[Rfam]
RNA: Alphaproteobacteria transfer-messenger RNA
RNA sequence: CCCUUUGCAAAGCCGCUCCACACGCCUAUAUUCACCGUGUCCCCUCGGGGACUAUGGGCAUAAACGCGCUCGUAAUAAGCGGAUCGGACCCGGGGGCGGUACCCGGCGGCUCCACCAUAAACCCUCGUUGGGGGAACAAGGGGCCGAAACAGGAUCGACGAACGUGUAAAGGUGUGGCUUUGUCCCGGUGAGAUACCACCGUUAUCGGUUCAUAAAGCAUAAUUGCCAACGACAAUCGUGCUCCGGUCGCCGUUGCCGCGUAAGCGGUAACUUGACCGAAAUCUAAGCCCAGGCCUCUAGCAAGGUCUGGCGGGGUUCGCAGGCACCUGGCAACAGAAGCCUGCACU
Numbered sequence: 001c002c003c004u005u006u007g008c009a010a011a012g013c014c015g016c017u018c019c020a021c022a023c024g025c026c027u028a029u030a031u032u033c034a035c036c037g038u039g040u041c042c043c044c045u046c047g048g049g050g051a052c053u054a055u056g057g058g059c060a061u062a063a064a065c066g067c068g069c070u071c072g073u074a075a076u077a078a079g080c081g082g083a084u085c086g087g088a089c090c091c092g093g094g095g096g097c098g099g100u101a102c103c104c105g106g107c108g109g110c111u112c113c114a115c116c117a118u119a120a121a122c123c124c125u126c127g128u129u130g131g132g133g134g135a136a137c138a139a140g141g142g143g144c145c146g147a148a149a150c151a152g153g154a155u156c157g158a159c160g161a162a163c164g165u166g167u168a169a170a171g172g173u174g175u176g177g178c179u180u181u182g183u184c185c186c187g188g189u190g191a192g193a194u195a196c197c198a199c200c201g202u203u204a205u206c207g208g209u210u211c212a213u214a215a216a217g218c219a220u221a222a223u224u225g226c227c228a229a230c231g232a233c234a235a236u237c238g239u240g241c242u243c244c245g246g247u248c249g250c251c252g253u254u255g256c257c258g259c260g261u262a263a264g265c266g267g268u269a270a271c272u273u274g275a276c277c278g279a280a281a282u283c284u285a286a287g288c289c290c291a292g293g294c295c296u297c298u299a300g301c302a303a304g305g306u307c308u309g310g311c312g313g314g315g316u317u318c319g320c321a322g323g324c325a326c327c328u329g330g331c332a333a334c335a336g337a338a339g340c341c342u343g344c345a346c347u
Base pairs, nucleotide, nucleotide: 039052040051041050042049043048056185057184058183059182060181066178067177068175069174071172080164081163084161085160086159090106091105092104093103094102107146108145109144110143111142112141113140186201187200188199189198192211193210195209196208197207313328314327315326316325319344320343321342322341323340324339